RNA sequence: GGAUAAUAUUGUUUUGUUAUUCCUGACCAAUAACGCAAUAGUACGUAGAAUAAUUUUUCCAUGUGUCAUUGUAUUAUUGACUGGGAAUAACAAAACAAUGAUAUUC
Numbered sequence: 001g002g003a004u005a006a007u008a009u010u011g012u013u014u015u016g017u018u019a020u021u022c023c024u025g026a027c028c029a030a031u032a033a034c035g036c037a038a039u040a041g042u043a044c045g046u047a048g049a050a051u052a053a054u055u056u057u058u059c060c061a062u063g064u065g066u067c068a069u070u071g072u073a074u075u076a077u078u079g080a081c082u083g084g085g086a087a088u089a090a091c092a093a094a095a096c097a098a099u100g101a102u103a104u105u106c
Stems, first nucleotide, its partner, number of pairs: 002105004012095009022085004028079006035072005041066006048059003
RNA: MIR6274 microRNA precursor family
Organism: Prunus dulcis